The record is a 117-nucleotide sequence from Callaeas wilsoni, which matches "Small nucleolar RNA SNORA61" in Rfam.
Rfam classes the family as an H/ACA-box small nucleolar RNA.
RNA sequence: UCCCUCCAAAUCCCUUUCCCAUCAGAUCUGAAUACCGAUCUUGUGGUCGAAAAAGGAGGAAGAGUAAAAUUCAUGCUGGUCUUGGGCUCUCUGCAGGUCUGUCCUGUUCUGAGAGGG
Numbered sequence: 001u002c003c004c005u006c007c008a009a010a011u012c013c014c015u016u017u018c019c020c021a022u023c024a025g026a027u028c029u030g031a032a033u034a035c036c037g038a039u040c041u042u043g044u045g046g047u048c049g050a051a052a053a054a055g056g057a058g059g060a061a062g063a064g065u066a067a068a069a070u071u072c073a074u075g076c077u078g079g080u081c082u083u084g085g086g087c088u089c090u091c092u093g094c095a096g097g098u099c100u101g102u103c104c105u106g107u108u109c110u111g112a113g114a115g116g117g
Base pairs, nucleotide, nucleotide: 003059004058005057006056007055019046020045021044023043025040026039027038028037076106078104079103081101087097
Annotation: Taxonomically the source falls in Callaeas (Eukaryota, Coelurosauria, Australaves, Corvoidea). ACA61 is a member of the H/ACA class of snoRNA that guide the sites of modification of uridines to pseudouridines.